[Rfam]
RNA sequence: GAAAGGCACCAGGGGUGUUUGUCUUUGCUACAGCAUCUCAUCUGUUUUGACAGAAGAUGCUGGCGAGACAGGCUGAGAAAGUCCCUUUGAACCUGAACAGGAUAAUGCCUGCGUAGGGAGUGUGCAUUUUCUUUUUC
Number, nucleotide and partner (000 for none) at each position: 001g000002a000003a000004a000005g000006g125007c124008a123009c122010c000011a086012g085013g084014g083015g000016u080017g073018u072019u071020u070021g069022u068023c067024u066025u065026u000027g000028c000029u000030a000031c000032a000033g000034c000035a000036u000037c000038u000039c000040a000041u000042c000043u000044g000045u000046u000047u000048u000049g000050a000051c000052a000053g000054a000055a000056g000057a000058u000059g000060c000061u000062g000063g000064c000065g025066a024067g023068a022069c021070a020071g019072g018073c017074u000075g000076a000077g000078a000079a000080a016081g000082u000083c014084c013085c012086u011087u000088u000089g000090a000091a000092c117093c116094u115095g114096a000097a000098c111099a110100g109101g108102a000103u000104a000105a000106u000107g000108c101109c100110u099111g098112c000113g000114u095115a094116g093117g092118g000119a000120g000121u000122g009123u008124g007125c006126a000127u000128u000129u000130u000131c000132u000133u000134u000135u000136u000137c000

The record is a 137-nucleotide RNA sequence, which matches "TPP riboswitch aptamer (THI element)" in Rfam. Vitamin B(1) in its active form thiamin pyrophosphate (TPP) is an essential coenzyme that is synthesised by coupling of pyrimidine and thiazole moieties in bacteria.